[Rfam]
RNA: U4 spliceosomal RNA
RNA sequence: AGCUUUGAGCAGUGGCAGUAUCGUAGCCAAUGAGGUUUAUCCAAGGCGUGAUUAUUGGUAGUUGAAACUCAAGAGUUGAGCCCCAUAAGAAUUCCAAUUUGCUUAAAGCAAAUGUAGGUUUUGUUUGCGUCUCCAUUGCUGGA
Numbered sequence: 001a002g003c004u005u006u007g008a009g010c011a012g013u014g015g016c017a018g019u020a021u022c023g024u025a026g027c028c029a030a031u032g033a034g035g036u037u038u039a040u041c042c043a044a045g046g047c048g049u050g051a052u053u054a055u056u057g058g059u060a061g062u063u064g065a066a067a068c069u070c071a072a073g074a075g076u077u078g079a080g081c082c083c084c085a086u087a088a089g090a091a092u093u094c095c096a097a098u099u100u101g102c103u104u105a106a107a108g109c110a111a112a113u114g115u116a117g118g119u120u121u122u123g124u125u126u127g128c129g130u131c132u133c134c135a136u137u138g139c140u141g142g143a
Stems, first nucleotide, its partner, number of pairs: 020052005026047003034042002091119003095114002098112006132143004